Shown here is an 85-nucleotide RNA sequence from Deinococcus yavapaiensis, a member of the family "c-di-GMP-II-GAG riboswitch aptamer". A search with the family's covariance model found it, with a score of 64 bits. NCBI's taxonomy places the organism under Bacteria, Thermotogati, Deinococcota, Deinococcaceae, Deinococcus yavapaiensis. Clan: c-di-GMP_II riboswitch clan. Pairs were carried over by alignment from the consensus structure, which is taken from published work. Rfam links the family to the GO terms cyclic-di-GMP binding and regulation of gene expression. The literature on the family includes a 2017 paper in Proc Natl Acad Sci U S A by Weinberg et al., "Bioinformatic analysis of riboswitch structures uncovers variant classes with altered ligand specificity".
RNA sequence: CAACUCAUGAGAUGCAACGAAGCUCAUCCUGCAACUCGGUCACCUCGGAUGGGUGGAGCAAGUGGUGAGACCGGCUCUCAGGAGA
Numbered sequence: 001c002a003a004c005u006c007a008u009g010a011g012a013u014g015c016a017a018c019g020a021a022g023c024u025c026a027u028c029c030u031g032c033a034a035c036u037c038g039g040u041c042a043c044c045u046c047g048g049a050u051g052g053g054u055g056g057a058g059c060a061a062g063u064g065g066u067g068a069g070a071c072c073g074g075c076u077c078u079c080a081g082g083a084g085a
Stems, first nucleotide, its partner, number of pairs: 004082002009077003013060003022054008038072002040068005